[Rfam]
RNA sequence: GCGCUUUGUGGUAGAGAUUGUGCUGCUACGCACCCUCGGGGUCAAAAGAGAUGCGGGAAAGGGUACACCCGCCAAAGCGC
Numbered sequence: 001g002c003g004c005u006u007u008g009u010g011g012u013a014g015a016g017a018u019u020g021u022g023c024u025g026c027u028a029c030g031c032a033c034c035c036u037c038g039g040g041g042u043c044a045a046a047a048g049a050g051a052u053g054c055g056g057g058a059a060a061g062g063g064u065a066c067a068c069c070c071g072c073c074a075a076a077g078c079g080c
Stems, first nucleotide, its partner, number of pairs: 001080008011029004020066005031048001032042004053072005

A member of the RNA family "skipping-rope RNA" from Agathobaculum faecis, 80 nucleotides long.